[Rfam]
RNA sequence: UUCUUAUUGGAUGAUAAUUGCCACGUGUCAUGUUCUUAUUGGAUGAUAACUGCCUCAAUUGUUUUCAUUGACCAAUCCGAACAUGACACGUGACAGUUAUCAUCC
Numbered sequence: 001u002u003c004u005u006a007u008u009g010g011a012u013g014a015u016a017a018u019u020g021c022c023a024c025g026u027g028u029c030a031u032g033u034u035c036u037u038a039u040u041g042g043a044u045g046a047u048a049a050c051u052g053c054c055u056c057a058a059u060u061g062u063u064u065u066c067a068u069u070g071a072c073c074a075a076u077c078c079g080a081a082c083a084u085g086a087c088a089c090g091u092g093a094c095a096g097u098u099a100u101c102a103u104c105c
Stems, first nucleotide, its partner, number of pairs: 020094001022092002025089002029085003033081003038076003

The family of this 105-nucleotide sequence from Glycine soja is "MIR1520 microRNA precursor family". NCBI's taxonomy places the organism under Eukaryota, Streptophytina, Embryophyta, Fabaceae, Glycine subgen. Soja. The family's consensus secondary structure was predicted with RNAalifold. The family has 18 seed sequences and 1,934 matches in Rfam 15.1. The family is grouped with related families in Rfam's "MIR1520 microRNA precursor clan".